[Rfam]
Record summary: A member of the RNA family "Small nucleolar RNA SNORA9", 129 nucleotides long. ACA9 is a member of the H/ACA class of snoRNA that guide the sites of modification of uridines to pseudouridines. Pairs were carried over by alignment from the consensus structure, which was predicted with PFOLD. Clan: SNORA9 clan.
RNA sequence: GCAAGCCUCCAGCGUGCGUGGGUCUGUGGUGAUGUGUGCAUUCCUACACUGCUUGCCAGAACAGUAUUGAAAUAGUGGAGCGUUUGUCCUGCUCCAUCCAGAGCAAGGUUAUAGAAAUUUCAGACAAUU
Numbered sequence: 001g002c003a004a005g006c007c008u009c010c011a012g013c014g015u016g017c018g019u020g021g022g023u024c025u026g027u028g029g030u031g032a033u034g035u036g037u038g039c040a041u042u043c044c045u046a047c048a049c050u051g052c053u054u055g056c057c058a059g060a061a062c063a064g065u066a067u068u069g070a071a072a073u074a075g076u077g078g079a080g081c082g083u084u085u086g087u088c089c090u091g092c093u094c095c096a097u098c099c100a101g102a103g104c105a106a107g108g109u110u111a112u113a114g115a116a117a118u119u120u121c122a123g124a125c126a127a128u129u
Stems, first nucleotide, its partner, number of pairs: 001056006015040003022033003068122005083107005089101003